[Rfam]
RNA: R2 RNA element
Organism: Zophobas morio
RNA sequence: ACAUUAUUAAUGAUAUCAAAAUACAGGACUUACCCUGAAGUUAUGUGCAAACGGUACAGGGGAAAGUCCGAGAAGAAGAGUAGGCAAGGGUUUAAUUGGUAGGUGCGCCAUAGAUUGGCCCGAAUCCAACACGCUCGGGCACCUUUUUAAACACCCCGAGUGUCUUUAGAAGAUUUCCUGCCUCCUCU
Numbered sequence: 001a002c003a004u005u006a007u008u009a010a011u012g013a014u015a016u017c018a019a020a021a022u023a024c025a026g027g028a029c030u031u032a033c034c035c036u037g038a039a040g041u042u043a044u045g046u047g048c049a050a051a052c053g054g055u056a057c058a059g060g061g062g063a064a065a066g067u068c069c070g071a072g073a074a075g076a077a078g079a080g081u082a083g084g085c086a087a088g089g090g091u092u093u094a095a096u097u098g099g100u101a102g103g104u105g106c107g108c109c110a111u112a113g114a115u116u117g118g119c120c121c122g123a124a125u126c127c128a129a130c131a132c133g134c135u136c137g138g139g140c141a142c143c144u145u146u147u148u149a150a151a152c153a154c155c156c157c158g159a160g161u162g163u164c165u166u167u168a169g170a171a172g173a174u175u176u177c178c179u180g181c182c183u184c185c186u187c188u
Stems, first nucleotide, its partner, number of pairs: 031056004036051001058188005082183004087179003096129004104122002107119003132162006